RNA sequence: GUGUAAAUAAAGCCGAAUCCUGUUUCAUAACAGGUACGGGGGAUUGCUUUUUUGGGGUGAAGCCUGAAGUGGCCAGGAAUUCUCCUUCCUGAAUCCGUCAACUAACCUCGGAGGCUCAAGGAGAGUGAAAAA
Numbered sequence: 001g002u003g004u005a006a007a008u009a010a011a012g013c014c015g016a017a018u019c020c021u022g023u024u025u026c027a028u029a030a031c032a033g034g035u036a037c038g039g040g041g042g043a044u045u046g047c048u049u050u051u052u053u054g055g056g057g058u059g060a061a062g063c064c065u066g067a068a069g070u071g072g073c074c075a076g077g078a079a080u081u082c083u084c085c086u087u088c089c090u091g092a093a094u095c096c097g098u099c100a101a102c103u104a105a106c107c108u109c110g111g112a113g114g115c116u117c118a119a120g121g122a123g124a125g126u127g128a129a130a131a132a
Stems, first nucleotide, its partner, number of pairs: 011116004019034006037110005045054002055096003063072002075090004
The family of this 132-nucleotide RNA sequence from Kroppenstedtia pulmonis is "c-di-AMP riboswitch aptamer (ydaO/yuaA leader)". NCBI's taxonomy places the organism under Bacteria, Bacillati, Bacilli, Thermoactinomycetaceae, Kroppenstedtia.